Rfam assigns this 98-nucleotide sequence from Hibiscus trionum to the family "MIR398 microRNA precursor family". The family's consensus secondary structure was predicted with WAR. A search with the family's covariance model found it, with a score of 70 bits. Lineage of the source: Eukaryota > Euphyllophyta > eudicotyledons > rosids > Hibiscus.
[Rfam]
RNA sequence: AGGAGUCCAACAGGGUCGACCCGAGAACACACGCGGCCGUUUCUCGAUUCGAUGUUCGAUCACUUGGUGUGUUCUCAGGUCGCCCCUGUAGGUCUACC
Numbered sequence: 001a002g003g004a005g006u007c008c009a010a011c012a013g014g015g016u017c018g019a020c021c022c023g024a025g026a027a028c029a030c031a032c033g034c035g036g037c038c039g040u041u042u043c044u045c046g047a048u049u050c051g052a053u054g055u056u057c058g059a060u061c062a063c064u065u066g067g068u069g070u071g072u073u074c075u076c077a078g079g080u081c082g083c084c085c086c087u088g089u090a091g092g093u094c095u096a097c098c
Stems, first nucleotide, its partner, number of pairs: 007092002011088004017082003023076010